[Rfam]
Nucleotides: 126
Stems, first nucleotide, its partner, number of pairs: 006114005011076004016070001017063003021059001082107003088101004
Number, partner (000 for none) and nucleotide at each position: 001000g002000g003000u004000c005000g006114a007113u008112g009111c010110u011076a012075g013074a014073g015000g016070u017063g018062c019061u020000u021059u022000u023000g024000g025000g026000u027000g028000g029000u030000u031000g032000u033000g034000c035000c036000g037000a038000u039000c040000a041000a042000a043000a044000g045000g046000c047000a048000u049000g050000g051000u052000c053000c054000c055000c056000c057000a058000u059021a060000u061019g062018g063017c064000u065000g066000a067000g068000a069000a070016a071000u072000a073014c074013u075012c076011u077000u078000a079000u080000c081000a082107c083106c084105u085000g086000a087000u088101c089100a090099g091098g092000g093000u094000a095000a096000u097000g098091c099090c100089u101088g102000c103000g104000a105084a106083g107082g108000g109000a110010a111009g112008c113007g114006u115000c116000g117000a118000c119000c120000u121000c122000g123000u124000u125000c126000c